[Rfam]
RNA sequence: AUGAGGAGGUGCCUGUUGCGACGAAGGAGCAAAAUCAGGAUGGCAACGACGACCUGCCGCCGAGCGAAGGCGAGGGGGCGAUACCCGUA
Numbered sequence: 001a002u003g004a005g006g007a008g009g010u011g012c013c014u015g016u017u018g019c020g021a022c023g024a025a026g027g028a029g030c031a032a033a034a035u036c037a038g039g040a041u042g043g044c045a046a047c048g049a050c051g052a053c054c055u056g057c058c059g060c061c062g063a064g065c066g067a068a069g070g071c072g073a074g075g076g077g078g079c080g081a082u083a084c085c086c087g088u089a
Stems, first nucleotide, its partner, number of pairs: 008047001010045004016032004056079003060075002064071002

This 89-nucleotide RNA sequence belongs to the Rfam family "GA-cis RNA". It is annotated as a small RNA.